[Rfam]
RNA sequence: AAAAAAGCAGGAUGCUGUGCUAUAUGCUGGCAGUAUCCUCAUAAACUUUAGGAACACCAUGAUCAUCAUUAUUGGGUGAACCGUUGGUCAUGUCCAUGUGUUGGACAACUCCAUGUCAAUUGGUUCAGUAAAUGAUGGCACAUUU
Numbered sequence: 001a002a003a004a005a006a007g008c009a010g011g012a013u014g015c016u017g018u019g020c021u022a023u024a025u026g027c028u029g030g031c032a033g034u035a036u037c038c039u040c041a042u043a044a045a046c047u048u049u050a051g052g053a054a055c056a057c058c059a060u061g062a063u064c065a066u067c068a069u070u071a072u073u074g075g076g077u078g079a080a081c082c083g084u085u086g087g088u089c090a091u092g093u094c095c096a097u098g099u100g101u102u103g104g105a106c107a108a109c110u111c112c113a114u115g116u117c118a119a120u121u122g123g124u125u126c127a128g129u130a131a132a133u134g135a136u137g138g139c140a141c142a143u144u145u
Base pairs, nucleotide, nucleotide: 005048006047007046011037012036014034015033016032017031063138064137065136066135067134068133069132070131077127078126079125080124081123082122083121
RNA: Small nucleolar RNA snoR74